[Rfam]
RNA sequence: GGAGAUGCGUGCGUCGCUGGUGGGCGCCCCGGUCUUCAAAACCGGUGUGGGGGAUGAGAAAUCUCCCGGGUGGGUUCGAUUCCCAUGCAUCUCC
Numbered sequence: 001g002g003a004g005a006u007g008c009g010u011g012c013g014u015c016g017c018u019g020g021u022g023g024g025c026g027c028c029c030c031g032g033u034c035u036u037c038a039a040a041a042c043c044g045g046u047g048u049g050g051g052g053g054a055u056g057a058g059a060a061a062u063c064u065c066c067c068g069g070g071u072g073g074g075u076u077c078g079a080u081u082c083c084c085a086u087g088c089a090u091c092u093c094c
Stems, first nucleotide, its partner, number of pairs: 001094009011027005017022001029045005048068005071085004
The family of this 94-nucleotide RNA sequence from Geobacter argillaceus is "Selenocysteine transfer RNA".
It scores 75 bits against the family's covariance model.